[Rfam]
RNA: Lysine riboswitch aptamer
Organism: Butyrivibrio hungatei
RNA sequence: ACAAGAGAUAGAGGUUGCGUAAUUCAAUGAGUAAUUCUGCAGAUGUGUCAGGCACAGGAGAAGCAGAACAAAAGGUGAAUACGCCGAAAGGCUUAGUACCUGUAUGCUAAGUACUUGGGCAUAAAGUAAAUAGCUUUAUGACUGUCAUCGCAAGAUGGGGCGCUAUCAACAGC
Numbered sequence: 001a002c003a004a005g006a007g008a009u010a011g012a013g014g015u016u017g018c019g020u021a022a023u024u025c026a027a028u029g030a031g032u033a034a035u036u037c038u039g040c041a042g043a044u045g046u047g048u049c050a051g052g053c054a055c056a057g058g059a060g061a062a063g064c065a066g067a068a069c070a071a072a073a074g075g076u077g078a079a080u081a082c083g084c085c086g087a088a089a090g091g092c093u094u095a096g097u098a099c100c101u102g103u104a105u106g107c108u109a110a111g112u113a114c115u116u117g118g119g120c121a122u123a124a125a126g127u128a129a130a131u132a133g134c135u136u137u138a139u140g141a142c143u144g145u146c147a148u149c150g151c152a153a154g155a156u157g158g159g160g161c162g163c164u165a166u167c168a169a170c171a172g173c
Stems, first nucleotide, its partner, number of pairs: 007167005017084005024078003035068006088116003091112008117143002120140008145158005